[Rfam]
This 130-nucleotide sequence from Rattus norvegicus belongs to the Rfam family "Small nucleolar RNA SNORA17". Clan: SNORA17 clan. About the family: snoRNA ACA 17 belongs to the H/ACA family of snoRNAs and is predicted to guide pseudouridylation of the 28S rRNA at positions U4659 and U4598. It shares the same host gene together with ACA43. NB This family has a high threshold value to exclude a large number of closely related sequences that do not appear to have conserved H and ACA boxes, and may be pseudogenes. Gene Ontology terms of the family: nucleolus and RNA processing. The family has 53 seed sequences and 5,784 matches in Rfam 15.1. On this family, see Ofengand and Bakin, J Mol Biol 1997: "Mapping to nucleotide resolution of pseudouridine residues in large subunit ribosomal RNAs from representative eukaryotes, prokaryotes, archaebacteria, mitochondria and chloroplasts". It is annotated as an H/ACA-box small nucleolar RNA.
RNA sequence: GAUGUUCCUGGAGGCACUGCAGAUGUGGCCGCUGUGUCACUUGUGUGCCAGUAGGUGGCAGUGAAGUAAGGCUAUGCCUAUGCUCAGUAUUCUGAACUGUGAGUACCUGAAUGAUUAGUAGCCUGACAUU
Numbered sequence: 001g002a003u004g005u006u007c008c009u010g011g012a013g014g015c016a017c018u019g020c021a022g023a024u025g026u027g028g029c030c031g032c033u034g035u036g037u038c039a040c041u042u043g044u045g046u047g048c049c050a051g052u053a054g055g056u057g058g059c060a061g062u063g064a065a066g067u068a069a070g071g072c073u074a075u076g077c078c079u080a081u082g083c084u085c086a087g088u089a090u091u092c093u094g095a096a097c098u099g100u101g102a103g104u105a106c107c108u109g110a111a112u113g114a115u116u117a118g119u120a121g122c123c124u125g126a127c128a129u130u
Base pairs, nucleotide, nucleotide: 003060004059005058006057007055008054009053010052013049014048015047019046020045021044025040026039027038028037029036066127069124070123071122072121073120074119075118081113082112084110085109086108087107088105089104090103091102092101